[Rfam]
RNA sequence: UGGUAGAUGCACCCUGAUAACUGACACCCCUAGUGGACUUUCGGCUACUUGGGGUUUUUUUU
Numbered sequence: 001u002g003g004u005a006g007a008u009g010c011a012c013c014c015u016g017a018u019a020a021c022u023g024a025c026a027c028c029c030c031u032a033g034u035g036g037a038c039u040u041u042c043g044g045c046u047a048c049u050u051g052g053g054g055u056u057u058u059u060u061u062u
Base pairs, nucleotide, nucleotide: 002013003012004011027054028053029052030051032049033048034047035046036045